[Rfam]
RNA sequence: UGGCUGCCAUAACUCCGAGCUGAGUCCGGCUAAGUUUGCCGCUUUCGCGCUCUGUAUUACGAACCGAAUAAGGUCGUCUUCAUAGCGUGGCAGUGGAAUUGCAAAUAGGCCAGUCCAGCCAGUGACAUUAGGUCACAAGGGCGUCGUAAGAAAUGGCGGCGCCUCCCGUGUUUGGAAAGGUGUUCCGUGGCGAAACAA
Numbered sequence: 001u002g003g004c005u006g007c008c009a010u011a012a013c014u015c016c017g018a019g020c021u022g023a024g025u026c027c028g029g030c031u032a033a034g035u036u037u038g039c040c041g042c043u044u045u046c047g048c049g050c051u052c053u054g055u056a057u058u059a060c061g062a063a064c065c066g067a068a069u070a071a072g073g074u075c076g077u078c079u080u081c082a083u084a085g086c087g088u089g090g091c092a093g094u095g096g097a098a099u100u101g102c103a104a105a106u107a108g109g110c111c112a113g114u115c116c117a118g119c120c121a122g123u124g125a126c127a128u129u130a131g132g133u134c135a136c137a138a139g140g141g142c143g144u145c146g147u148a149a150g151a152a153a154u155g156g157c158g159g160c161g162c163c164u165c166c167c168g169u170g171u172u173u174g175g176a177a178a179g180g181u182g183u184u185c186c187g188u189g190g191c192g193a194a195a196c197a198a
Stems, first nucleotide, its partner, number of pairs: 011184003015180002019119004024114001026113001028111003034106006122136005139164009149154001165175002
Annotation:
A member of the RNA family "Molybdenum/Tungsten riboswitch aptamer (Moco RNA motif)" from Vibrio agarilyticus, 198 nucleotides long. Lineage of the source: Bacteria > Pseudomonadota > Gammaproteobacteria > Vibrionaceae > Vibrio.